[Rfam]
RNA sequence: AGACGGAGCCUGUCUUGACGGGGUACAGGAAGCUCUUUAGACUCUUGUACCCCUAAUUUGGCGGGGCAUUGGCCCUGCCAUUUUUCGUUUGUGUCGAAAGACAACAGUGGAGCUAGUAGA
Numbered sequence: 001a002g003a004c005g006g007a008g009c010c011u012g013u014c015u016u017g018a019c020g021g022g023g024u025a026c027a028g029g030a031a032g033c034u035c036u037u038u039a040g041a042c043u044c045u046u047g048u049a050c051c052c053c054u055a056a057u058u059u060g061g062c063g064g065g066g067c068a069u070u071g072g073c074c075c076u077g078c079c080a081u082u083u084u085u086c087g088u089u090u091g092u093g094u095c096g097a098a099a100g101a102c103a104a105c106a107g108u109g110g111a112g113c114u115a116g117u118a119g120a
Stems, first nucleotide, its partner, number of pairs: 004017003008013001021052003025048006033040002059080009087117001089115001091113002093102003
Rfam assigns this 120-nucleotide RNA sequence from Stutzerimonas nosocomialis to the family "Pseudomonas rpsL leader". The literature on the family includes a 2010 paper in Genome Biol by Naville and Gautheret, "Premature terminator analysis sheds light on a hidden world of bacterial transcriptional attenuation". Pairs were carried over by alignment from the consensus structure, which is taken from published work.